[Rfam]
RNA sequence: CCUCCUUUGGGGAGUAGCCUUCCGUUCUGACGGAACAAUCAUCAACAUAAUUGAAGCAAAAUCUUCAUGGUGAUUGUGACUGACCAUUACUCCGGUCAGUUUGGCGAGACCAUAGGCAAAUCGACAUGAACCGGGGUGGGGCGUGUCUGUUUGUCUUUGGUUAGCAUAAUAAUCC
Numbered sequence: 001c002c003u004c005c006u007u008u009g010g011g012g013a014g015u016a017g018c019c020u021u022c023c024g025u026u027c028u029g030a031c032g033g034a035a036c037a038a039u040c041a042u043c044a045a046c047a048u049a050a051u052u053g054a055a056g057c058a059a060a061a062u063c064u065u066c067a068u069g070g071u072g073a074u075u076g077u078g079a080c081u082g083a084c085c086a087u088u089a090c091u092c093c094g095g096u097c098a099g100u101u102u103g104g105c106g107a108g109a110c111c112a113u114a115g116g117c118a119a120a121u122c123g124a125c126a127u128g129a130a131c132c133g134g135g136g137u138g139g140g141g142c143g144u145g146u147c148u149g150u151u152u153g154u155c156u157u158u159g160g161u162u163a164g165c166a167u168a169a170u171a172a173u174c175c
Stems, first nucleotide, its partner, number of pairs: 022033003035077010052067005078174002081171002